[Rfam]
RNA sequence: AGCUUAUAAAGAGAGAUGGAGGGACUGGCCCGGUGAAAUCUCAGCAACCUGCAGCAGUGCAAGGUGCUAAAUCCAGCAGAAUGUCAGGCGCAUUCUGAAAGAUAAGUU
Numbered sequence: 001a002g003c004u005u006a007u008a009a010a011g012a013g014a015g016a017u018g019g020a021g022g023g024a025c026u027g028g029c030c031c032g033g034u035g036a037a038a039u040c041u042c043a044g045c046a047a048c049c050u051g052c053a054g055c056a057g058u059g060c061a062a063g064g065u066g067c068u069a070a071a072u073c074c075a076g077c078a079g080a081a082u083g084u085c086a087g088g089c090g091c092a093u094u095c096u097g098a099a100a101g102a103u104a105a106g107u108u
Stems, first nucleotide, its partner, number of pairs: 001108007013042005021031003025076004043068004048064002050061004072100001077097008
Dot-bracket structure: (((((((.....(((((...(((.[[[[)))......)))))((((.((((((....)))).))))))...(]]]]((((((((.....))))))))..).)))))))

Rfam assigns this 108-nucleotide sequence from Bacillus licheniformis to the family "SAM riboswitch aptamer (S box leader)".
The organism belongs to Bacillus licheniformis, within Bacteria.